[Rfam]
RNA sequence: UCCACACGCGUGGAGUUGCGUCCGGCACGGGCGCCUCAUCCACCCCCGUGUCGGAGCAGACCCGCCCGGUCGUCCCCCGGGCGGGUC
Numbered sequence: 001u002c003c004a005c006a007c008g009c010g011u012g013g014a015g016u017u018g019c020g021u022c023c024g025g026c027a028c029g030g031g032c033g034c035c036u037c038a039u040c041c042a043c044c045c046c047c048g049u050g051u052c053g054g055a056g057c058a059g060a061c062c063c064g065c066c067c068g069g070u071c072g073u074c075c076c077c078c079g080g081g082c083g084g085g086u087c
Base pairs, nucleotide, nucleotide: 001014002013003012004011005010018057019056021055022054023053024052025051026050027049028048059087060086061085062084063083064082065081066080067079068078069077
The family of this 87-nucleotide sequence from Rhodopseudomonas palustris is "Rhizobiales-2 RNA".
The base pairs follow the family's consensus structure, which is taken from published work.
Lineage of the source: Bacteria > Pseudomonadati > Pseudomonadota > Rhodopseudomonas > Rhodopseudomonas palustris.
It is annotated as a small RNA.